A member of the RNA family "Small nucleolar RNA SNORD77" from Octodon degus, 68 nucleotides long. Rfam links the family to the GO terms RNA processing and nucleolus. The literature on the family includes a 2004 paper in Curr Biol by Tycowski et al., "Guide RNAs with 5' caps and novel box C/D snoRNA-like domains for modification of snRNAs in metazoa". Lineage of the source: Eukaryota > Chordata > Eutheria > Euarchontoglires > Octodon. Rfam describes the family as follows. U77 belongs to the C/D family of snoRNAs. It scores 58 bits against the family's covariance model.

RNA sequence: AUACCAUGAUGGUUGCAUAGUUCAGCAGAAGACCCGUGAAGAGAUUUCAUCACAUGUCUGAUGUAUCU
Numbered sequence: 001a002u003a004c005c006a007u008g009a010u011g012g013u014u015g016c017a018u019a020g021u022u023c024a025g026c027a028g029a030a031g032a033c034c035c036g037u038g039a040a041g042a043g044a045u046u047u048c049a050u051c052a053c054a055u056g057u058c059u060g061a062u063g064u065a066u067c068u
Stems, first nucleotide, its partner, number of pairs: 001066004006037003013028004042055001045052001